[Rfam]
Nucleotides: 100
Stems, first nucleotide, its partner, number of pairs: 002099023
Number, partner (000 for none) and nucleotide at each position: 001000a002099c003098u004097g005096c006095u007094g008093a009092g010091c011090c012089a013088u014087c015086u016085c017084u018083c019082c020081a021080g022079c023078c024077c025000c026000a027000u028000g029000u030000a031000a032000u033000a034000a035000a036000u037000u038000u039000u040000a041000a042000a043000a044000a045000g046000a047000a048000a049000a050000u051000g052000u053000u054000u055000u056000u057000g058000g059000a060000a061000a062000a063000g064000g065000u066000g067000g068000a069000g070000a071000g072000c073000a074000a075000a076000g077024g078023g079022g080021c081020u082019g083018g084017a085016g086015a087014g088013a089012u090011g091010g092009c093008u094007c095006a096005g097004u098003g099002g100000u

A member of the RNA family "mir-3473 microRNA precursor family" from Nannospalax galili, 100 nucleotides long. A search with the family's covariance model found it, with a score of 72 bits. Pairs were carried over by alignment from the consensus structure, which was predicted with RNAalifold. Rfam links the family to the GO terms miRNA-mediated post-transcriptional gene silencing, RISC complex and cellular response to mechanical stimulus.